[Rfam]
RNA sequence: GCAGACUCACUACGCACCUGGCUGCAGCCCCAGGUGGGUGCUUGUUCCCUCUGCCAGAGAAACAAACAUUCCUUAUAGGUCAGUGCUGUGGCCGCCUGACCUUUAAGAGUGAUGCAGCUGCCUGGAGAUACGGCG
Numbered sequence: 001g002c003a004g005a006c007u008c009a010c011u012a013c014g015c016a017c018c019u020g021g022c023u024g025c026a027g028c029c030c031c032a033g034g035u036g037g038g039u040g041c042u043u044g045u046u047c048c049c050u051c052u053g054c055c056a057g058a059g060a061a062a063c064a065a066a067c068a069u070u071c072c073u074u075a076u077a078g079g080u081c082a083g084u085g086c087u088g089u090g091g092c093c094g095c096c097u098g099a100c101c102u103u104u105a106a107g108a109g110u111g112a113u114g115c116a117g118c119u120g121c122c123u124g125g126a127g128a129u130a131c132g133g134c135g
Stems, first nucleotide, its partner, number of pairs: 001054005014041007022033003070126003077123004085118006093111003097107001

Rfam assigns this 135-nucleotide sequence from Callithrix jacchus to the family "Small nucleolar RNA SNORA77". For this family Rfam cites "A computational screen for mammalian pseudouridylation guide H/ACA RNAs" (Schattner et al., RNA, 2006). About the family: ACA63 (SNORA77) is a member of the H/ACA class of snoRNAs that guide the sites of modification of uridines to pseudouridines. This snoRNA was identified by computational screening and its expression in mouse experimentally verified by Northern blot and primer extension analysis. ACA63 is proposed to guide the pseudouridylation of 18S rRNA U814. By type it is an H/ACA-box small nucleolar RNA. The family has 19 seed sequences and 843 matches in Rfam 15.1.